[Rfam]
RNA: Plastid-psbA-4 3UTR RNA
Organism: Protea cynaroides
RNA sequence: UUAUUGAAGGAGCAAUACCGCAUUUCUUCUUUUAUCAAGAGGUUGGUAUUGCUCCUUCAU
Dot-bracket structure: .....((((((((((((....(.(((((........))))).)...))))))))))))..